[Rfam]
RNA sequence: GCCCGGAUGCGGCAGGGCUUACAGGGCCGCGCAGACGGUGACGGCGACCACCUUAAAACGCCUA
Numbered sequence: 001g002c003c004c005g006g007a008u009g010c011g012g013c014a015g016g017g018c019u020u021a022c023a024g025g026g027c028c029g030c031g032c033a034g035a036c037g038g039u040g041a042c043g044g045c046g047a048c049c050a051c052c053u054u055a056a057a058a059c060g061c062c063u064a
Stems, first nucleotide, its partner, number of pairs: 001018004010029004037052004